[Rfam]
RNA sequence: GUUCUGUAGGGUAGGAGGAGAGAGAUGUUGCCUUAUCAGCUGCCUCCUCUCCCAUCAUCUAUUUCUGCAGAAGC
Numbered sequence: 001g002u003u004c005u006g007u008a009g010g011g012u013a014g015g016a017g018g019a020g021a022g023a024g025a026u027g028u029u030g031c032c033u034u035a036u037c038a039g040c041u042g043c044c045u046c047c048u049c050u051c052c053c054a055u056c057a058u059c060u061a062u063u064u065c066u067g068c069a070g071a072a073g074c
Stems, first nucleotide, its partner, number of pairs: 002072008010062001013058001015056002017053002020051005027044001029042002032039002
RNA: mir-1759 microRNA precursor family
Organism: Chaetura pelagica